[Rfam]
RNA sequence: GAGAUGGUGAUAGUCCACUGAAUUUAUAACAGACUUUGAUUUCAAAUCAAACUUUUU
Number, nucleotide and partner (000 for none) at each position: 001g000002a019003g018004a000005u017006g016007g015008u000009g000010a000011u000012a000013g000014u000015c007016c006017a005018c003019u002020g000021a000022a000023u000024u000025u000026a000027u000028a000029a000030c000031a055032g054033a053034c000035u051036u050037u049038g048039a047040u046041u000042u000043c000044a000045a000046a040047u039048c038049a037050a036051a035052c000053u033054u032055u031056u000057u000
RNA: Cyanobacteria heterocyst sRNA
Organism: Ciconia maguari